Shown here is a 124-nucleotide RNA from Candidatus Propionivibrio aalborgensis, a member of the family "Group II catalytic intron D1-D4-2". It scores 87 bits against the family's covariance model. For this family Rfam cites "The ins and outs of group II introns" (Bonen and Vogel, Trends Genet, 2001). About the family: Group II introns are found in rRNA, tRNA and mRNA of organelles in fungi, plants and protists, and also in mRNA in bacteria. Pairs were carried over by alignment from the consensus structure. Lineage of the source: Bacteria > Pseudomonadati > Pseudomonadota > Betaproteobacteria > Propionivibrio. Rfam 15.1 lists 1,231 matches to the family in 625 species.
RNA sequence: GAGGGUAGGUUGGUCCCUCGGUAUCGGCUUUAAGGAGCAGGCCUCAAACCACCCCAAGGUGCUGCGGUCAAGAGCCGUGGUGGUGAGCGUUGGGGCAAUAGUCCGAGAAAUACCUUGGGCAGGU
Numbered sequence: 001g002a003g004g005g006u007a008g009g010u011u012g013g014u015c016c017c018u019c020g021g022u023a024u025c026g027g028c029u030u031u032a033a034g035g036a037g038c039a040g041g042c043c044u045c046a047a048a049c050c051a052c053c054c055c056a057a058g059g060u061g062c063u064g065c066g067g068u069c070a071a072g073a074g075c076c077g078u079g080g081u082g083g084u085g086a087g088c089g090u091u092g093g094g095g096c097a098a099u100a101g102u103c104c105g106a107g108a109a110a111u112a113c114c115u116u117g118g119g120c121a122g123g124u
Stems, first nucleotide, its partner, number of pairs: 001019005020045002024041002027038004050123001052095006058084001061081003065077004101120006